The family of this 130-nucleotide sequence from Streptomyces uncialis is "Streptomyces RNA 5676". Identified by deep sequencing of transcriptome at the end of exponential growth phase. Appears longer on northern blot than sequencing transcript. This indicates processing step. Streptomyces specific. The match comes from Rfam's covariance-model search (107 bits). The family's RNA type in Rfam is small RNA. The base pairs follow the family's consensus structure.
RNA sequence: GGAUGAGAGAAACACCUCGCCCGGGGGUGACCCCGGGCGGCUCCGGUGCGUGGCCUCCCCAGUCGCGUACCGGCCGUGCGUUCGCGCACACCACCGGAGCCUUCGGCGCCGGGACUCCUCACCGAUCGGA
Numbered sequence: 001g002g003a004u005g006a007g008a009g010a011a012a013c014a015c016c017u018c019g020c021c022c023g024g025g026g027g028u029g030a031c032c033c034c035g036g037g038c039g040g041c042u043c044c045g046g047u048g049c050g051u052g053g054c055c056u057c058c059c060c061a062g063u064c065g066c067g068u069a070c071c072g073g074c075c076g077u078g079c080g081u082u083c084g085c086g087c088a089c090a091c092c093a094c095c096g097g098a099g100c101c102u103u104c105g106g107c108g109c110c111g112g113g114a115c116u117c118c119u120c121a122c123c124g125a126u127c128g129g130a
Stems, first nucleotide, its partner, number of pairs: 004121004009117002017040010043073005049067006076089004094112004099107003122129002